The family of this 104-nucleotide RNA sequence from Carpinus fangiana is "Small nucleolar RNA R30/Z108". Rfam's curators write: snoR30 is a C/D box small nucleolar RNA which acts as a methylation guide for 18S ribosomal RNA in plants.
RNA sequence: AGAGAUUGCAAUGAGGAUGACAAAGCUCCCUCUUCUGAGAUUAUACGUUGAGGAAGUACGCUGGCAGAAUCGAACCUAAAACUCUUAACGCCACCACUGAGUAA
Numbered sequence: 001a002g003a004g005a006u007u008g009c010a011a012u013g014a015g016g017a018u019g020a021c022a023a024a025g026c027u028c029c030c031u032c033u034u035c036u037g038a039g040a041u042u043a044u045a046c047g048u049u050g051a052g053g054a055a056g057u058a059c060g061c062u063g064g065c066a067g068a069a070u071c072g073a074a075c076c077u078a079a080a081a082c083u084c085u086u087a088a089c090g091c092c093a094c095c096a097c098u099g100a101g102u103a104a
Base pairs, nucleotide, nucleotide: 006104007103008102009101
Dot-bracket structure: .....((((...........................................................................................))))
About this RNA: The family has 6 seed sequences and 626 matches in Rfam 15.1. Rfam links the family to the GO terms RNA processing and nucleolus. A reference for the family is Marker et al. (2002), "Experimental RNomics. Identification of 140 Candidates for Small Non-Messenger RNAs in the Plant Arabidopsis thaliana", Curr Biol.